[Rfam]
RNA sequence: GAUCAAGAAGUUCGACGUGAAGCCUCUCAGCUUGUCGACUGGCAACCGCUUAUCGCACACGGUGCCCCUGAGGGAAGAUCUGCCCCCGAGCAUGAGCUCGGGUGGAAUUCAGCGAG
Numbered sequence: 001g002a003u004c005a006a007g008a009a010g011u012u013c014g015a016c017g018u019g020a021a022g023c024c025u026c027u028c029a030g031c032u033u034g035u036c037g038a039c040u041g042g043c044a045a046c047c048g049c050u051u052a053u054c055g056c057a058c059a060c061g062g063u064g065c066c067c068c069u070g071a072g073g074g075a076a077g078a079u080c081u082g083c084c085c086c087c088g089a090g091c092a093u094g095a096g097c098u099c100g101g102g103u104g105g106a107a108u109u110c111a112g113c114g115a116g
Base pairs, nucleotide, nucleotide: 001080002079003078004077009040012038013037014036015035016034021032022031041066042065043064046062047061048060051057083105084104085102086101087100088099089098090097091096

The record is a 116-nucleotide RNA sequence from Flaviflexus salsibiostraticola, which matches "SAM (S-adenosyl methionine) riboswitch aptamer" in Rfam.
Rfam links the family to the GO terms S-adenosylmethionine metabolic process and regulation of gene expression.
The organism belongs to Flaviflexus, within Bacteria.
It scores 55 bits against the family's covariance model.